[Rfam]
RNA sequence: GUGACGAGCCGAAGCGCUGUAUUCUUCUUAGCCGCUUCCGCCUGAUGGACAGCACUCCUCCUCCCAUGCUGUCGGUCACUAUCGAAGCCCGGCGCACUCUCCCGCGCCGGGCUUCUGC
Numbered sequence: 001g002u003g004a005c006g007a008g009c010c011g012a013a014g015c016g017c018u019g020u021a022u023u024c025u026u027c028u029u030a031g032c033c034g035c036u037u038c039c040g041c042c043u044g045a046u047g048g049a050c051a052g053c054a055c056u057c058c059u060c061c062u063c064c065c066a067u068g069c070u071g072u073c074g075g076u077c078a079c080u081a082u083c084g085a086a087g088c089c090c091g092g093c094g095c096a097c098u099c100u101c102c103c104g105c106g107c108c109g110g111g112c113u114u115c116u117g118c
Stems, first nucleotide, its partner, number of pairs: 008041002011038006017031001044077003048073006085114011
RNA: Alphaproteobacterial ar14
Organism: Rhizobium etli